The record is a 92-nucleotide RNA sequence from Marvinbryantia formatexigens, which matches "S10-Clostridia ribosomal protein leader" in Rfam. Rfam's curators put it in the seed alignment. NCBI's taxonomy places the organism under Bacteria, Bacillati, Bacillota, Lachnospirales, Marvinbryantia formatexigens. For this family Rfam cites "Discovery of 20 novel ribosomal leader candidates in bacteria and archaea" (Eckert and Weinberg, BMC Microbiol, 2020).
[Rfam]
RNA sequence: UGAUAGCGUUGAAGCGUGAGGUUGCUGCGGGAAAAGGAAAAACCGCAGGUUUUCCGUGGAGCGAAUGUCAAGUUCUGAGAAACUGGCGACAA
Numbered sequence: 001u002g003a004u005a006g007c008g009u010u011g012a013a014g015c016g017u018g019a020g021g022u023u024g025c026u027g028c029g030g031g032a033a034a035a036g037g038a039a040a041a042a043c044c045g046c047a048g049g050u051u052u053u054c055c056g057u058g059g060a061g062c063g064a065a066u067g068u069c070a071a072g073u074u075c076u077g078a079g080a081a082a083c084u085g086g087c088g089a090c091a092a
Stems, first nucleotide, its partner, number of pairs: 014057003018054004025048005066091004072087001075086003